Xanthomonas sRNA sX9: a 75-nucleotide RNA from Herbaspirillum sp. meg3. A search with the family's covariance model found it, with a score of 56 bits. Pairs were carried over by alignment from the consensus structure, which was predicted with RNAalifold. Rfam classes the family as a small RNA.
[Rfam]
RNA sequence: AUGUACUUAAGUACAUUUCGGUUCGUCCGCUCCGGCCGCCACCGGCUGACGGCCUCUCGCUACGGAUCGUGAACC
Numbered sequence: 001a002u003g004u005a006c007u008u009a010a011g012u013a014c015a016u017u018u019c020g021g022u023u024c025g026u027c028c029g030c031u032c033c034g035g036c037c038g039c040c041a042c043c044g045g046c047u048g049a050c051g052g053c054c055u056c057u058c059g060c061u062a063c064g065g066a067u068c069g070u071g072a073a074c075c
Base pairs, nucleotide, nucleotide: 002015003014004013005012006011019034020033021032024029047072049070050069051068052067